This 70-nucleotide RNA from Caenorhabditis brenneri belongs to the Rfam family "mir-246 microRNA precursor family". Its family is annotated with RISC complex and miRNA-mediated post-transcriptional gene silencing in the Gene Ontology. Lineage of the source: Eukaryota > Opisthokonta > Metazoa > Rhabditidae > Caenorhabditis.
RNA sequence: GAGAGCACCUGGCCGAAAUCAUGUAAUAUUGCAAUGAGUUCUAUUACAUGUUCCGGGUAGGAGCUGUCGA
Numbered sequence: 001g002a003g004a005g006c007a008c009c010u011g012g013c014c015g016a017a018a019u020c021a022u023g024u025a026a027u028a029u030u031g032c033a034a035u036g037a038g039u040u041c042u043a044u045u046a047c048a049u050g051u052u053c054c055g056g057g058u059a060g061g062a063g064c065u066g067u068c069g070a
Base pairs, nucleotide, nucleotide: 008061009060010059011058013056014055015054020050021049022048023047024046025045028044029043031041